[Rfam]
RNA sequence: GAAAGCCCGAGAGCAGCUGACGCCCAUGAGGUGAGGAAAGUCCCCCCUCCGCAGGUGGAGGCCAACCGUCCAAAGCCGGUAUUCCGAGAGGAAUGGCAAUGAGAAAAGAAAUAAACGCUCCCCGGUAAAAUAUGACUGGAAAACAUGAUGUUUCCGGGGGUGGCGAUGGGAACUUAUCCUGGCCGGAGAAAGUCCAAACAGACCCUGUGACGCCACCGGGAGGGUCAGGUAGGACGAAGGCUAAAGGCCGAUCAGUCGAAUGCUGCAAGCCUGAAAGGGGUAACAGAAGGGGGCUUACUCCGGGCAGUC
Numbered sequence: 001g002a003a004a005g006c007c008c009g010a011g012a013g014c015a016g017c018u019g020a021c022g023c024c025c026a027u028g029a030g031g032u033g034a035g036g037a038a039a040g041u042c043c044c045c046c047c048u049c050c051g052c053a054g055g056u057g058g059a060g061g062c063c064a065a066c067c068g069u070c071c072a073a074a075g076c077c078g079g080u081a082u083u084c085c086g087a088g089a090g091g092a093a094u095g096g097c098a099a100u101g102a103g104a105a106a107a108g109a110a111a112u113a114a115a116c117g118c119u120c121c122c123c124g125g126u127a128a129a130a131u132a133u134g135a136c137u138g139g140a141a142a143a144c145a146u147g148a149u150g151u152u153u154c155c156g157g158g159g160g161u162g163g164c165g166a167u168g169g170g171a172a173c174u175u176a177u178c179c180u181g182g183c184c185g186g187a188g189a190a191a192g193u194c195c196a197a198a199c200a201g202a203c204c205c206u207g208u209g210a211c212g213c214c215a216c217c218g219g220g221a222g223g224g225u226c227a228g229g230u231a232g233g234a235c236g237a238a239g240g241c242u243a244a245a246g247g248c249c250g251a252u253c254a255g256u257c258g259a260a261u262g263c264u265g266c267a268a269g270c271c272u273g274a275a276a277g278g279g280g281u282a283a284c285a286g287a288a289g290g291g292g293g294c295u296u297a298c299u300c301c302g303g304g305c306a307g308u309c
Stems, first nucleotide, its partner, number of pairs: 001309002005305005010299002012252001014250001016248002021033004038296003042293005047188004052218001054216001060184005065080004081094005095179002100176004116165003119160007137145002192235004201226005
RNA: Archaeal RNase P